[Rfam]
RNA sequence: AUGCAUCCAGUAGGAAUUGAAACUACGAACUUUUCAAUUAUUCCUUGGGUGCUUUAACCAUUCAGCCAUGGAUGC
Numbered sequence: 001a002u003g004c005a006u007c008c009a010g011u012a013g014g015a016a017u018u019g020a021a022a023c024u025a026c027g028a029a030c031u032u033u034u035c036a037a038u039u040a041u042u043c044c045u046u047g048g049g050u051g052c053u054u055u056a057a058c059c060a061u062u063c064a065g066c067c068a069u070g071g072a073u074g075c
Base pairs, nucleotide, nucleotide: 003075004074005073006072007071008070010026011025012024013023040069041068045065046064047063048062049061050060051059

A member of the RNA family "Plastid-ycf2 5UTR RNA" from Rhododendron williamsianum, 75 nucleotides long.
About the family: Plastid ycf2 is a non-coding RNA (ncRNA) recognised in plastids.
The match comes from Rfam's covariance-model search (73 bits).